[Rfam]
RNA sequence: UCAGGAGAGGUUCGCGAACUCCCUCUAUAAAAAACUAAACCAAA
Numbered sequence: 001u002c003a004g005g006a007g008a009g010g011u012u013c014g015c016g017a018a019c020u021c022c023c024u025c026u027a028u029a030a031a032a033a034a035c036u037a038a039a040c041c042a043a044a
Stems, first nucleotide, its partner, number of pairs: 006026005016036001